[Rfam]
RNA sequence: AAGAUUUUUUGAUUUCGGUAUCGCUGUAUCUCAUCGUAAUUCGGACUUCUCCUAUCAACCUCGGUUAGUUUCGCCGGGGUUUUU
Numbered sequence: 001a002a003g004a005u006u007u008u009u010u011g012a013u014u015u016c017g018g019u020a021u022c023g024c025u026g027u028a029u030c031u032c033a034u035c036g037u038a039a040u041u042c043g044g045a046c047u048u049c050u051c052c053u054a055u056c057a058a059c060c061u062c063g064g065u066u067a068g069u070u071u072c073g074c075c076g077g078g079g080u081u082u083u084u
Base pairs, nucleotide, nucleotide: 058080059079060078061077062076063075064074065073
Dot-bracket structure: .........................................................((((((((.......))))))))....
The record is an 84-nucleotide RNA from Nostoc sp. ATCC 43529, which matches "Photosynthesis regulatory RNA1" in Rfam.
The base pairs follow the family's consensus structure, which was predicted with CMfinder.
Rfam links the family to the GO terms regulation of photosynthesis and regulation of translation.
From the family's description: Formerly known as Syr1 discovered in Synechocystis sp PCC 6803, is a regulatory factor controlling photosynthetic functions.
It scores 65 bits against the family's covariance model.
Lineage of the source: Bacteria > Cyanobacteriota > Nostocales > Nostocaceae > Nostoc.
The family has 13 seed sequences and 92 matches in Rfam 15.1.
The literature on the family includes a 2014 paper in Plant Cell by Georg et al., "The small regulatory RNA SyR1/PsrR1 controls photosynthetic functions in cyanobacteria".